Source information: Burkholderia sRNA 2: a 131-nucleotide RNA from Burkholderia glumae. The organism belongs to Burkholderia glumae, within Bacteria. On this family, see Ghosh et al., Microbiology 2017: "Identification of novel small RNAs in Burkholderia cenocepacia KC-01 expressed under iron limitation and oxidative stress conditions". By type it is a small RNA. Upregulated in response to iron ion depletion. Predicted targets include MerR family transcriptional regulator.
RNA sequence: AUGAAUGCCCGUCAGCCCCAUCUUUUUCGCCGCUGCGCAGGCGCACCACAUGAGGCGCUUAGGCCCGUGAGGCGCAGUACGCAGCAGGAAGCCGAGCCGCUUGCCCCUGUUCGGGGGCAGCGGCUUUUUUC
Numbered sequence: 001a002u003g004a005a006u007g008c009c010c011g012u013c014a015g016c017c018c019c020a021u022c023u024u025u026u027u028c029g030c031c032g033c034u035g036c037g038c039a040g041g042c043g044c045a046c047c048a049c050a051u052g053a054g055g056c057g058c059u060u061a062g063g064c065c066c067g068u069g070a071g072g073c074g075c076a077g078u079a080c081g082c083a084g085c086a087g088g089a090a091g092c093c094g095a096g097c098c099g100c101u102u103g104c105c106c107c108u109g110u111u112c113g114g115g116g117g118c119a120g121c122g123g124c125u126u127u128u129u130u131c
Stems, first nucleotide, its partner, number of pairs: 007038002009035001011033002015028001040078001043075002046072002049069001054065003080094002084092002095125006102119006